[Rfam]
RNA sequence: GGAGUUAGCAAUAAUUAUAAAAAAAAAAUUUUGUUCUGACUUACUUAAUUUGAACAUGACAAACCUCUUAUUAUACCAAUAGAAUCUGAGCUCU
Numbered sequence: 001g002g003a004g005u006u007a008g009c010a011a012u013a014a015u016u017a018u019a020a021a022a023a024a025a026a027a028a029u030u031u032u033g034u035u036c037u038g039a040c041u042u043a044c045u046u047a048a049u050u051u052g053a054a055c056a057u058g059a060c061a062a063a064c065c066u067c068u069u070a071u072u073a074u075a076c077c078a079a080u081a082g083a084a085u086c087u088g089a090g091c092u093c094u
Stems, first nucleotide, its partner, number of pairs: 003094002007092002
Description: A member of the RNA family "Small nucleolar RNA snoR8a" from Theobroma umbraticum, 94 nucleotides long. Rfam 15.1 lists 956 matches to the family in 245 species. NCBI's taxonomy places the organism under Eukaryota, Magnoliopsida, Mesangiospermae, Malvales, Theobroma. The literature on the family includes a 2001 paper in RNA by Brown et al., "Multiple snoRNA gene clusters from Arabidopsis". Rfam classes the family as a C/D-box small nucleolar RNA.